[Rfam]
RNA sequence: CACUGCCCUAUGUUCUGUUCACAUUGUGCACUUAGUUAAGCAUACUGUGGCGCACAAUGUGAACAGAACAUGGGGCAGCAG
Number, nucleotide and partner (000 for none) at each position: 001c081002a000003c000004u000005g076006c075007c074008c073009u072010a071011u000012g069013u068014u067015c066016u065017g064018u063019u062020c000021a000022c059023a058024u057025u056026g055027u054028g053029c052030a000031c000032u000033u000034a000035g000036u000037u000038a000039a000040g000041c000042a000043u000044a000045c000046u000047g000048u000049g000050g000051c000052g029053c028054a027055c026056a025057a024058u023059g022060u000061g000062a019063a018064c017065a016066g015067a014068a013069c012070a000071u010072g009073g008074g007075g006076c005077a000078g000079c000080a000081g001
RNA: mir-130 microRNA precursor family
Organism: Scleropages formosus